[Rfam]
Annotation
The record is an 84-nucleotide sequence from Hyalella azteca, which matches "mir-7 microRNA precursor family" in Rfam. This family represents the microRNA (miRNA) precursor mir-7. For this family Rfam cites "Identification of novel genes coding for small expressed RNAs" (Lagos-Quintana et al., Science, 2001). A search with the family's covariance model found it, with a score of 59 bits. Pairs were carried over by alignment from the consensus structure, which was predicted with PFOLD. NCBI's taxonomy places the organism under Eukaryota, Metazoa, Peracarida, Senticaudata, Hyalella.
RNA sequence: CGACUGUAGUGCUGUGGAAGACUAGUGAUUUUGUUGUUUGUUUUUACUAACAAGAAAUCGCCAGUCUUCUCAGCAAUGCAGCCG
Numbered sequence: 001c002g003a004c005u006g007u008a009g010u011g012c013u014g015u016g017g018a019a020g021a022c023u024a025g026u027g028a029u030u031u032u033g034u035u036g037u038u039u040g041u042u043u044u045u046a047c048u049a050a051c052a053a054g055a056a057a058u059c060g061c062c063a064g065u066c067u068u069c070u071c072a073g074c075a076a077u078g079c080a081g082c083c084g
Stems, first nucleotide, its partner, number of pairs: 002083001004081005010075005016069002019067005025062001027059005034053005